[Rfam]
Rfam assigns this 375-nucleotide part of an RNA from Plasmodium berghei to the family "Eukaryotic large subunit ribosomal RNA". Rfam links the family to the GO terms structural constituent of ribosome and ribosome. The sequence is in the family's curated seed alignment. On this family, see Yusupov et al., Science 2001: "Crystal structure of the ribosome at 5.5 A resolution".
RNA sequence: GAGUCUAACAAAUGUGCGAGCGUAUAUAUGUUUUUAACUAUAAUAAAAGUAUUUUCAUUCUUUUAUAUUUACGCGCAGUUAAAGUAAAUUGUGCUUAACCUAUUUGUAGAAUAUACUGAGAUUGAUAAUAUCUAUUUUCACUUGGAACCUGAAAAUAGAUUUCUUCAGUUGAAGUAUACGCAUACAAACCCGGUUGGCAACUGUCAAACUGAGGGUGAGUAUAUUUGUUAGGACCCGAGAGGCUUUGAACUAAGCGUGGUGAGAUUGAAGUCAGACGAAAGUCUGAUGGAGGAUCGAAUUGAUACUGACGUGCAAAUCGUUCAUUUCAAUCACGUUUAGGGGCGAAAGACUAAUCGAAAAGCCUAUUAGCUGGUU
Numbered sequence: 001g002a003g004u005c006u007a008a009c010a011a012a013u014g015u016g017c018g019a020g021c022g023u024a025u026a027u028a029u030g031u032u033u034u035u036a037a038c039u040a041u042a043a044u045a046a047a048a049g050u051a052u053u054u055u056c057a058u059u060c061u062u063u064u065a066u067a068u069u070u071a072c073g074c075g076c077a078g079u080u081a082a083a084g085u086a087a088a089u090u091g092u093g094c095u096u097a098a099c100c101u102a103u104u105u106g107u108a109g110a111a112u113a114u115a116c117u118g119a120g121a122u123u124g125a126u127a128a129u130a131u132c133u134a135u136u137u138u139c140a141c142u143u144g145g146a147a148c149c150u151g152a153a154a155a156u157a158g159a160u161u162u163c164u165u166c167a168g169u170u171g172a173a174g175u176a177u178a179c180g181c182a183u184a185c186a187a188a189c190c191c192g193g194u195u196g197g198c199a200a201c202u203g204u205c206a207a208a209c210u211g212a213g214g215g216u217g218a219g220u221a222u223a224u225u226u227g228u229u230a231g232g233a234c235c236c237g238a239g240a241g242g243c244u245u246u247g248a249a250c251u252a253a254g255c256g257u258g259g260u261g262a263g264a265u266u267g268a269a270g271u272c273a274g275a276c277g278a279a280a281g282u283c284u285g286a287u288g289g290a291g292g293a294u295c296g297a298a299u300u301g302a303u304a305c306u307g308a309c310g311u312g313c314a315a316a317u318c319g320u321u322c323a324u325u326u327c328a329a330u331c332a333c334g335u336u337u338a339g340g341g342g343c344g345a346a347a348g349a350c351u352a353a354u355c356g357a358a359a360a361g362c363c364u365a366u367u368a369g370c371u372g373g374u375u
Base pairs, nucleotide, nucleotide: 005231006230007229008228009227010226011225012224013223014222015221016220017219020074021073022072026068027067028066029065030064078085079084104187105186106185107184108183112178113177114176115175116174117173189214190213191211192210193209194207195206196205197204198203234373235372237370241363242362243361244360245359246358250339251338252337253336254335255334256333257332258331259330260329261327263295264294265293266292270287271286272285273284274283275282276281300323301322302321304320305319307318308317341351342350